Rfam assigns this 182-nucleotide sequence from Paenibacillus albilobatus to the family "FMN riboswitch aptamer (RFN element)". The base pairs follow the family's consensus structure, which is taken from published work. About the family: The RFN element is a highly conserved domain that is found frequently in the 5'-untranslated regions of prokaryotic mRNAs that encode for flavin mononucleotide (FMN) biosynthesis and transport proteins.
RNA sequence: GUUUUCCUUCGGGGCAGGGUGAAAUUCCCUACCGGCGGUGAUGAUGCAUUUCGUGCAUGGCGGUUUGCCAUAAAACGUAUGAAUCUUAGUCCGUGACCCGGCCGCGUGCUUGACAGCCCGCGUACGGUGGACCCGGUGCAAUUCCGGGACCGACAGUAUAGUCUGGAUGGGAGAAGGAGCGA
Numbered sequence: 001g002u003u004u005u006c007c008u009u010c011g012g013g014g015c016a017g018g019g020u021g022a023a024a025u026u027c028c029c030u031a032c033c034g035g036c037g038g039u040g041a042u043g044a045u046g047c048a049u050u051u052c053g054u055g056c057a058u059g060g061c062g063g064u065u066u067g068c069c070a071u072a073a074a075a076c077g078u079a080u081g082a083a084u085c086u087u088a089g090u091c092c093g094u095g096a097c098c099c100g101g102c103c104g105c106g107u108g109c110u111u112g113a114c115a116g117c118c119c120g121c122g123u124a125c126g127g128u129g130g131a132c133c134c135g136g137u138g139c140a141a142u143u144c145c146g147g148g149a150c151c152g153a154c155a156g157u158a159u160a161g162u163c164u165g166g167a168u169g170g171g172a173g174a175a176g177g178a179g180c181g182a
Base pairs, nucleotide, nucleotide: 004179005178006177007176008175009174010173017029018028019027031162032161033152034151035105036104037103038102108128109127110126132148133147134146135145136144154165155164156163